[Rfam]
RNA sequence: AUGCCCACCUUGGACCACCAGUCGUCCUUGGUGCCUAACACAGGGGGGCAGAGCAACUCUCUCAUAAACCUGUAGUGGAGGCACUAAUCCUCGCUGCGGAUCCUGUCGGGAGAAACAUCC
Numbered sequence: 001a002u003g004c005c006c007a008c009c010u011u012g013g014a015c016c017a018c019c020a021g022u023c024g025u026c027c028u029u030g031g032u033g034c035c036u037a038a039c040a041c042a043g044g045g046g047g048g049c050a051g052a053g054c055a056a057c058u059c060u061c062u063c064a065u066a067a068a069c070c071u072g073u074a075g076u077g078g079a080g081g082c083a084c085u086a087a088u089c090c091u092c093g094c095u096g097c098g099g100a101u102c103c104u105g106u107c108g109g110g111a112g113a114a115a116c117a118u119c120c
Stems, first nucleotide, its partner, number of pairs: 002050005008044003017036001019031001059112005070099007078092003083088001
This 120-nucleotide RNA sequence from Cyprinodon variegatus belongs to the Rfam family "Small nucleolar RNA SNORA26". The organism belongs to Cyprinodon, within Eukaryota. Clan: SNORA27 clan. Rfam describes the family as follows. The snoRNA HBI-6 belong to the H/ACA family of snoRNAs, guiding the pseudouridylation of position U4522 if the 28S rRNA. HBI-6 is the human orthologue of mouse MBI-6 snoRNA. The literature on the family includes a 2001 paper in EMBO J by Huttenhofer et al., "RNomics: an experimental approach that identifies 201 candidates for novel, small, non-messenger RNAs in mouse". The family's RNA type in Rfam is H/ACA-box small nucleolar RNA.